[Rfam]
RNA sequence: GGCAUUUUAUUUCUAUACCACGAUUAGCCCCGGAAUCUAAUUGUGUUGAGAAUAAAAUAU
Numbered sequence: 001g002g003c004a005u006u007u008u009a010u011u012u013c014u015a016u017a018c019c020a021c022g023a024u025u026a027g028c029c030c031c032g033g034a035a036u037c038u039a040a041u042u043g044u045g046u047u048g049a050g051a052a053u054a055a056a057a058u059a060u
Stems, first nucleotide, its partner, number of pairs: 006056007019045009
RNA: Ribosomal protein L13 leader
Organism: Pontibacillus chungwhensis